[Rfam]
RNA sequence: GGGGAGGCACAGCCAAGUAGCUACUUCGUUAACACUAUACAGACCGUCUCUAUCUGUAGCCCGGAUGGGCAAUUGUGCGAGCUCUUGGCGCAGUCCUGCCUUUUC
Number, nucleotide and partner (000 for none) at each position: 001g000002g100003g099004g000005a097006g096007g095008c000009a000010c000011a000012g089013c088014c087015a086016a000017g085018u000019a083020g082021c000022u000023a000024c000025u081026u080027c079028g078029u077030u000031a000032a000033c000034a000035c000036u000037a000038u000039a000040c000041a000042g000043a000044c000045c000046g000047u000048c000049u000050c000051u000052a000053u000054c000055u000056g000057u000058a000059g000060c000061c000062c000063g000064g000065a000066u000067g000068g000069g000070c000071a000072a000073u000074u000075g000076u000077g029078c028079g027080a026081g025082c020083u019084c000085u017086u015087g014088g013089c012090g000091c000092a000093g000094u000095c007096c006097u005098g000099c003100c002101u000102u000103u000104u000105c000

The record is a 105-nucleotide sequence from Holothuria leucospilota, which matches "Vault RNA" in Rfam. The match comes from Rfam's covariance-model search (35 bits). NCBI's taxonomy places the organism under Eukaryota, Opisthokonta, Metazoa, Deuterostomia, Holothuria. Rfam describes the family as follows. This family of RNAs are found as part of the enigmatic vault ribonucleoprotein complex. The family's RNA type in Rfam is non-coding RNA gene.